[Rfam]
RNA sequence: UCUGUGGAGAGUACUAGAACUUGUGAGUAGUAUUUAAGUAAACUUAAAUAUGAAAGCAUGCUCGAUGAAACAGAAA
Numbered sequence: 001u002c003u004g005u006g007g008a009g010a011g012u013a014c015u016a017g018a019a020c021u022u023g024u025g026a027g028u029a030g031u032a033u034u035u036a037a038g039u040a041a042a043c044u045u046a047a048a049u050a051u052g053a054a055a056g057c058a059u060g061c062u063c064g065a066u067g068a069a070a071c072a073g074a075a076a
Stems, first nucleotide, its partner, number of pairs: 001074005009063005022058003030051003035046002
RNA: RAGATH-18 RNA